The family of this 98-nucleotide RNA sequence from Papaver nudicaule is "Small nucleolar RNA Z157/R69/R10". Rfam classes the family as a C/D-box small nucleolar RNA. Its Rfam clan is "SNORD52 clan". A reference for the family is Chen et al. (2003), "The high diversity of snoRNAs in plants: identification and comparative study of 120 snoRNA genes from Oryza sativa", Nucleic Acids Res.

RNA sequence: UAGCUUGCGGUGAUGACAUUAUUGUGGACUAGAGAUUCUGAUUGGGGCUCUUCACCUUAAUUUGAUUUGACGACAAACCCUUGGUUGUCUGAGCACUA
Numbered sequence: 001u002a003g004c005u006u007g008c009g010g011u012g013a014u015g016a017c018a019u020u021a022u023u024g025u026g027g028a029c030u031a032g033a034g035a036u037u038c039u040g041a042u043u044g045g046g047g048c049u050c051u052u053c054a055c056c057u058u059a060a061u062u063u064g065a066u067u068u069g070a071c072g073a074c075a076a077a078c079c080c081u082u083g084g085u086u087g088u089c090u091g092a093g094c095a096c097u098a
Base pairs, nucleotide, nucleotide: 001098002097003096006095007094008093035067037065038064042060043059044058045057046056047055